[Rfam]
RNA sequence: AUUUUAUAAAUACUCCGAGUCUAUUCUUCCUAAUAAAGAAAUUUUAUGGGAGAUAGGCCUGUAGGGUAUAAAGGGAAACCUUUAUGCCUCCCAUUGUGGAAAGGAGUCGUGCAUACAAAACA
Numbered sequence: 001a002u003u004u005u006a007u008a009a010a011u012a013c014u015c016c017g018a019g020u021c022u023a024u025u026c027u028u029c030c031u032a033a034u035a036a037a038g039a040a041a042u043u044u045u046a047u048g049g050g051a052g053a054u055a056g057g058c059c060u061g062u063a064g065g066g067u068a069u070a071a072a073g074g075g076a077a078a079c080c081u082u083u084a085u086g087c088c089u090c091c092c093a094u095u096g097u098g099g100a101a102a103g104g105a106g107u108c109g110u111g112c113a114u115a116c117a118a119a120a121c122a
Base pairs, nucleotide, nucleotide: 004115012107013106014105015104016103019058020057021056022055023054024053026052027051028050029049030048035044036043037042064089065088066087067086068085069084070083071082072081073080074079090099091098
RNA: Molybdenum/Tungsten riboswitch aptamer (Moco RNA motif)
Organism: Natronincola ferrireducens